[Rfam]
RNA sequence: CCAACGUGGGCAUCCGCAGAGGUUGCUCUCUGCCGGCUCUGCCCGUGUGGCGCAGGGGAGCGCAGGCCUGCGGGCCCGUGACGUACGGUCCCGUUCCACGCCGUUGGAGAUCAAGCGGGCCUGGAGCCUGCAGCCUGCAUAUUCCUACUGCUUCUCUGAGCCUCCGGGCGCUUACAGAGGAGAUAAACCAUGCAGGAAACAGUU
Numbered sequence: 001c002c003a004a005c006g007u008g009g010g011c012a013u014c015c016g017c018a019g020a021g022g023u024u025g026c027u028c029u030c031u032g033c034c035g036g037c038u039c040u041g042c043c044c045g046u047g048u049g050g051c052g053c054a055g056g057g058g059a060g061c062g063c064a065g066g067c068c069u070g071c072g073g074g075c076c077c078g079u080g081a082c083g084u085a086c087g088g089u090c091c092c093g094u095u096c097c098a099c100g101c102c103g104u105u106g107g108a109g110a111u112c113a114a115g116c117g118g119g120c121c122u123g124g125a126g127c128c129u130g131c132a133g134c135c136u137g138c139a140u141a142u143u144c145c146u147a148c149u150g151c152u153u154c155u156c157u158g159a160g161c162c163u164c165c166g167g168g169c170g171c172u173u174a175c176a177g178a179g180g181a182g183a184u185a186a187a188c189c190a191u192g193c194a195g196g197a198a199a200c201a202g203u204u
Base pairs, nucleotide, nucleotide: 001107002106003105004104005103006102008044009043010042011041012040014036015035016034018029019028020027021026047099048098049097050096056092057091058090059089060086062084063083065079134196135195136194137193138192139191140190151182152181153180154179155178156177160169161168162167

Rfam assigns this 204-nucleotide RNA from Psilopogon haemacephalus to the family "Small nucleolar RNA SNORA73 family". The literature on the family includes a 1996 paper in RNA by Enright et al., "5'ETS rRNA processing facilitated by four small RNAs: U14, E3, U17, and U3". About the family: U17 (SNORA73A and SNORA73B) also known as E1 belongs to the H/ACA class of small nucleolar RNAs (snoRNAs). Vertebrate U17 is intron-encoded and ranges in length from 200-230 nucleotides, longer than most snoRNAs. It is one of the most abundant snoRNAs in human cells and is essential for the cleavage of pre-rRNA within the 5' external transcribed spacer (ETS). This cleavage leads to the formation of 18S rRNA. Regions of the U17 RNA are complementary to rRNA and act as guides for RNA/RNA interactions, although these regions do not seem to be well conserved between organisms. It scores 180 bits against the family's covariance model. NCBI's taxonomy places the organism under Eukaryota, Metazoa, Teleostomi, Saurischia, Psilopogon. Rfam classes the family as an H/ACA-box small nucleolar RNA.